[Rfam]
RNA sequence: GUUCUCUUGGGCGAUGGCGCCCGCCCGGGGCUUCGAGCCCGAACCGCCUCCCAUGGGGAGGCUGAUGGCGCCUAUUCUUGA
Numbered sequence: 001g002u003u004c005u006c007u008u009g010g011g012c013g014a015u016g017g018c019g020c021c022c023g024c025c026c027g028g029g030g031c032u033u034c035g036a037g038c039c040c041g042a043a044c045c046g047c048c049u050c051c052c053a054u055g056g057g058g059a060g061g062c063u064g065a066u067g068g069c070g071c072c073u074a075u076u077c078u079u080g081a
Stems, first nucleotide, its partner, number of pairs: 010025004016072006046062007
RNA: Fluoride riboswitch aptamer (crcB RNA motif)